RNA sequence: UUGACGGUGUACUCCCAGAGCGCGUCGGACUGGCGGACCGCCUCGUCGCCCAGGUGGUCGCCGUCGGCCAGGUGGCCGACCACGGUGGUCUCGCCGUACUUGCCGGUGCCGAUCUUGUUGAUCUUGCCGUGCGCGAUCAGGUAGACCUCUUCGAUCGGCUGCCCGGCCUCCACCAGGACCUCGCCCGGGGCCACCUCGCGCUGGGUGAACCGGCCGGCCAGCUCGGCCAGCAGCGCGUCGUCGGCGACAUCGCGCAGCACCGGCAUCUCGCGCAGCGUGGGCGGCACGAUCCGCACCUCGGCGCCGGUCUUGGCGAAGCUGAUCCGGCCGCGUCCGACCGCGUAGCUGAGGCGGCGGUUGACCCGGUAGGUGCCGCCGGAGACCUGCACCCAGGGCAGCGCCUUGAGCAGCCAGCGCGAGCUGAUGCCCUGCAUCUGCGGCUCGGACUUGGUGGUCGUGGCGAGGUUGCGCGCCGCCACGGUGCUGAGGCUGAGCCGGCUCUGACCCGGUGC
Numbered sequence: 001u002u003g004a005c006g007g008u009g010u011a012c013u014c015c016c017a018g019a020g021c022g023c024g025u026c027g028g029a030c031u032g033g034c035g036g037a038c039c040g041c042c043u044c045g046u047c048g049c050c051c052a053g054g055u056g057g058u059c060g061c062c063g064u065c066g067g068c069c070a071g072g073u074g075g076c077c078g079a080c081c082a083c084g085g086u087g088g089u090c091u092c093g094c095c096g097u098a099c100u101u102g103c104c105g106g107u108g109c110c111g112a113u114c115u116u117g118u119u120g121a122u123c124u125u126g127c128c129g130u131g132c133g134c135g136a137u138c139a140g141g142u143a144g145a146c147c148u149c150u151u152c153g154a155u156c157g158g159c160u161g162c163c164c165g166g167c168c169u170c171c172a173c174c175a176g177g178a179c180c181u182c183g184c185c186c187g188g189g190g191c192c193a194c195c196u197c198g199c200g201c202u203g204g205g206u207g208a209a210c211c212g213g214c215c216g217g218c219c220a221g222c223u224c225g226g227c228c229a230g231c232a233g234c235g236c237g238u239c240g241u242c243g244g245c246g247a248c249a250u251c252g253c254g255c256a257g258c259a260c261c262g263g264c265a266u267c268u269c270g271c272g273c274a275g276c277g278u279g280g281g282c283g284g285c286a287c288g289a290u291c292c293g294c295a296c297c298u299c300g301g302c303g304c305c306g307g308u309c310u311u312g313g314c315g316a317a318g319c320u321g322a323u324c325c326g327g328c329c330g331c332g333u334c335c336g337a338c339c340g341c342g343u344a345g346c347u348g349a350g351g352c353g354g355c356g357g358u359u360g361a362c363c364c365g366g367u368a369g370g371u372g373c374c375g376c377c378g379g380a381g382a383c384c385u386g387c388a389c390c391c392a393g394g395g396c397a398g399c400g401c402c403u404u405g406a407g408c409a410g411c412c413a414g415c416g417c418g419a420g421c422u423g424a425u426g427c428c429c430u431g432c433a434u435c436u437g438c439g440g441c442u443c444g445g446a447c448u449u450g451g452u453g454g455u456c457g458u459g460g461c462g463a464g465g466u467u468g469c470g471c472g473c474c475g476c477c478a479c480g481g482u483g484c485u486g487a488g489g490c491u492g493a494g495c496c497g498g499c500u501c502u503g504a505c506c507c508g509g510u511g512c
Stems, first nucleotide, its partner, number of pairs: 006390006015381001018328001022324001025322004031316001038313002040308003045305001047303004052298001054234002058229001060227004065111004075103001077102003082097005117222004122217002127212001129210002131206002134203002140197001143196002155188004160183001162177001165174002235296001237294002240290004244285002251281001253279002257276002261270002329342004352378006361371003391431007399423002403418001407415001437476004443470002446467001447465003451461002477511002480506003484503001486501003
The family of this 512-nucleotide RNA sequence from Streptomyces tateyamensis is "Saccharopolyspora sRNA 350". The literature on the family includes a 2013 paper in PLoS One by Liu et al., "Prediction and characterization of small non-coding RNAs related to secondary metabolites in Saccharopolyspora erythraea". Its family is annotated with regulation of secondary metabolite biosynthetic process in the Gene Ontology. It scores 174 bits against the family's covariance model. NCBI's taxonomy places the organism under Bacteria, Bacillati, Kitasatosporales, Streptomycetaceae, Streptomyces.